[Rfam]
RNA sequence: CCUCUUCGAUCUGCUGCGGGCAGAUGAAGUGGAUGUGGGUGUCGAUGCCGCCGGCGGUGACGAUGCUGCCUUCGCCGGCGAUGAUCUCGGUGCCGGGGCCGAUCACGAUGUCGACGCCGGGCUGCACGUCGGGGUUGCCGGCCUUGCCGAUGCCGGCGAUGCGGCCGGCCUUCAGCCCGAUGUCGGCCUUCACGAUGCCCCAGUGGUCGAUGAUCAGCGCGUUGGUGAUCACCGUGUCGGCCACGUCCUUCGACAGGCGCUGGCCCUGGCCCAUGCCGUCGCGGAUG
Number, nucleotide and partner (000 for none) at each position: 001c287002c000003u285004c000005u283006u000007c281008g280009a279010u000011c000012u158013g157014c156015u155016g154017c000018g076019g075020g000021c000022a072023g071024a000025u000026g000027a000028a000029g000030u053031g052032g051033a000034u050035g049036u000037g048038g000039g046040u045041g000042u000043c000044g000045a040046u039047g000048c037049c035050g034051c032052c031053g030054g000055c000056g000057g069058u068059g067060a000061c000062g000063a000064u000065g000066c000067u059068g058069c057070c000071u023072u022073c000074g000075c019076c018077g148078g147079c000080g000081a144082u000083g142084a000085u140086c000087u000088c000089g000090g138091u137092g136093c000094c134095g000096g000097g130098g129099c128100c000101g000102a123103u000104c121105a000106c119107g117108a000109u000110g000111u000112c000113g000114a000115c000116g000117c107118c000119g106120g000121g104122c000123u102124g000125c000126a000127c000128g099129u098130c097131g000132g000133g000134g094135u000136u092137g091138c090139c000140g085141g000142c083143c000144u081145u000146g000147c078148c077149g000150a000151u000152g000153c000154c016155g015156g014157c013158g012159a000160u000161g000162c000163g000164g270165c269166c268167g267168g000169c000170c000171u000172u263173c262174a261175g260176c259177c257178c256179g000180a000181u000182g000183u000184c000185g000186g220187c219188c000189u217190u216191c000192a000193c000194g000195a000196u000197g000198c000199c000200c209201c000202a000203g000204u000205g000206g000207u000208c000209g200210a000211u000212g000213a000214u000215c000216a190217g189218c000219g187220c186221g000222u000223u255224g254225g000226u000227g000228a249229u000230c000231a246232c000233c000234g244235u243236g242237u000238c000239g000240g000241c000242c236243a235244c234245g000246u231247c000248c000249u228250u000251c000252g000253a000254c224255a223256g178257g177258c000259g176260c175261u174262g173263g172264c000265c000266c000267u167268g166269g165270c164271c000272c000273a000274u000275g000276c000277c000278g000279u009280c008281g007282c000283g005284g000285a003286u000287g001

The record is a 287-nucleotide sequence from Rhizobacter sp. Root29, which matches "5' ureB small RNA" in Rfam.
Gene Ontology term of the family: negative regulation of gene expression.
The organism belongs to Rhizobacter, within Bacteria.